A member of the RNA family "Flavivirus 3' UTR cis-acting replication element (CRE)" from Orthoflavivirus langatense, 102 nucleotides long. Taxonomically the source falls in Orthoflavivirus langatense (Viruses, Orthornavirae, Amarillovirales, Euflavivirus). A reference for the family is Zeng et al. (1998), "Identification of specific nucleotide sequences within the conserved 3'-SL in the dengue type 2 virus genome required for replication", J Virol. Rfam describes the family as follows. This family represents the Flavivirus 3'-SL cis-acting replication element (CRE). The family is thought to play a crucial role in replication and is thought to be needed for the formation of a 'replication complex'. Although evidence has been presented for an existence of a pseudoknot structure in this RNA, it does not appear to be well conserved across flaviviruses. Deletions of the 3' UTR of flaviviruses have been shown to be lethal for infectious clones. Rfam links the family to the GO term viral genome replication. The base pairs follow the family's consensus structure, which is taken from published work.
[Rfam]
Nucleotides: 102
Base pairs, nucleotide, nucleotide: 001014002013003012004011016102017101018100019098020097021096039083040082041081042079043078044077045076046075047074048073049072051063052062053061
Number, partner (000 for none) and nucleotide at each position: 001014c002013c003012u004011c005000g006000u007000c008000a009000g010000a011004g012003g013002g014001g015000g016102g017101g018100c019098g020097g021096u022000u023000c024000u025000u026000g027000u028000u029000c030000u031000c032000c033000c034000u035000g036000a037000g038000c039083c040082a041081c042079c043078a044077u045076c046075a047074c048073c049072u050000a051063g052062a053061c054000a055000c056000a057000g058000a059000u060000a061053g062052u063051c064000u065000g066000a067000a068000a069000a070000g071000g072049a073048g074047g075046u076045g077044a078043u079042g080000c081041g082040u083039g084000u085000c086000u087000c088000g089000g090000a091000a092000a093000a094000a095000c096021a097020c098019c099000c100018g101017c102016u